RNA: mir-202 microRNA precursor family
RNA sequence: UUGUUAUUUUUUCCUGUGCAUAUGCUGCUUUGAAAAUUGGUUCUAAAGAGGUAUGGGACAUGGGAAAAUGGGGUAA
Numbered sequence: 001u002u003g004u005u006a007u008u009u010u011u012u013c014c015u016g017u018g019c020a021u022a023u024g025c026u027g028c029u030u031u032g033a034a035a036a037u038u039g040g041u042u043c044u045a046a047a048g049a050g051g052u053a054u055g056g057g058a059c060a061u062g063g064g065a066a067a068a069u070g071g072g073g074u075a076a
Base pairs, nucleotide, nucleotide: 010067011066012065013064014063015062016061017060018059021055022054023053025051026050028048029047030046031045032044